[Rfam]
RNA sequence: AUUGGUUGAAAAUCACCCCCCGGCUUUAGCCAUGGCAGCGGGUGAGAUUCGGUGCCUAGAGCCUCCAGGGGCCUCAGCUCACCGCGUGCUGACACAUGUGCGGCGGUGAAACCCAGCCCCAACAGGC
Numbered sequence: 001a002u003u004g005g006u007u008g009a010a011a012a013u014c015a016c017c018c019c020c021c022g023g024c025u026u027u028a029g030c031c032a033u034g035g036c037a038g039c040g041g042g043u044g045a046g047a048u049u050c051g052g053u054g055c056c057u058a059g060a061g062c063c064u065c066c067a068g069g070g071g072c073c074u075c076a077g078c079u080c081a082c083c084g085c086g087u088g089c090u091g092a093c094a095c096a097u098g099u100g101c102g103g104c105g106g107u108g109a110a111a112c113c114c115a116g117c118c119c120c121a122a123c124a125g126g127c
Base pairs, nucleotide, nucleotide: 005053006052007051008050009049010048013045014044015043016042023036024035025034068120070118071117072116074115079109080108081107082106083105087100088099089098